[Rfam]
RNA sequence: GGUCAUGCUUUUCCACAGCUUUCUUGAACUUCCUUUGUAUUCAUUCAUGCCGCCUGAUAUGUAAUAGUAUAGCAAAACCAUGAAAGCUCAAGAAAGCUGUGGGAGAACAUGAUGG
Numbered sequence: 001g002g003u004c005a006u007g008c009u010u011u012u013c014c015a016c017a018g019c020u021u022u023c024u025u026g027a028a029c030u031u032c033c034u035u036u037g038u039a040u041u042c043a044u045u046c047a048u049g050c051c052g053c054c055u056g057a058u059a060u061g062u063a064a065u066a067g068u069a070u071a072g073c074a075a076a077a078c079c080a081u082g083a084a085a086g087c088u089c090a091a092g093a094a095a096g097c098u099g100u101g102g103g104a105g106a107a108c109a110u111g112a113u114g115g
Stems, first nucleotide, its partner, number of pairs: 003112005013102003017098006024091004029086003033082001
Notes
The family of this 115-nucleotide sequence from Hibiscus syriacus is "MIR396 microRNA precursor family". NCBI's taxonomy places the organism under Eukaryota, Pentapetalae, Malvales, Malvaceae, Hibiscus. The family's consensus secondary structure was predicted with WAR.